[Rfam]
RNA sequence: GCUUCGGUCUUGUGAUCGAUGCAGUCUGCACCAGUACCUGAUACGGCUGGCGCAA
Numbered sequence: 001g002c003u004u005c006g007g008u009c010u011u012g013u014g015a016u017c018g019a020u021g022c023a024g025u026c027u028g029c030a031c032c033a034g035u036a037c038c039u040g041a042u043a044c045g046g047c048u049g050g051c052g053c054a055a
Stems, first nucleotide, its partner, number of pairs: 001022002004019006027054003031050005
RNA: L17-Actino-Proteobacteria ribosomal protein leader